[Rfam]
RNA sequence: AAGUUAUCACCUCAGGCCAUAACAGAAACACUCAUGGCAUGGCCACAUCAGAUUCCAAUGAAUCUGUGACUUCUACU
Numbered sequence: 001a002a003g004u005u006a007u008c009a010c011c012u013c014a015g016g017c018c019a020u021a022a023c024a025g026a027a028a029c030a031c032u033c034a035u036g037g038c039a040u041g042g043c044c045a046c047a048u049c050a051g052a053u054u055c056c057a058a059u060g061a062a063u064c065u066g067u068g069a070c071u072u073c074u075a076c077u
Base pairs, nucleotide, nucleotide: 015044016043017042018041021077024074025073026072027071028040049066050065051064052063053062054061055060
Shown here is a 77-nucleotide sequence from Alligator sinensis, a member of the family "Mammalian CPEB3 ribozyme". The base pairs follow the family's consensus structure, which is taken from published work.